[Rfam]
RNA sequence: UGCAAGUACUUUACGAUUAAGAAGCAACUGUCUCUUAUAUAGAUCGUGCAUAAAUAU
Numbered sequence: 001u002g003c004a005a006g007u008a009c010u011u012u013a014c015g016a017u018u019a020a021g022a023a024g025c026a027a028c029u030g031u032c033u034c035u036u037a038u039a040u041a042g043a044u045c046g047u048g049c050a051u052a053a054a055u056a057u
Stems, first nucleotide, its partner, number of pairs: 018037005024031002

About this RNA
This 57-nucleotide sequence belongs to the Rfam family "Plastid-rps18 3UTR RNA". Rfam classes the family as a cis-regulatory element. Plastid rps18 is a non-coding RNA (ncRNA) present in plastids. It was identified as a short stem-loop motif in the 3 prime untranslate region (3UTR) of rps18 gene.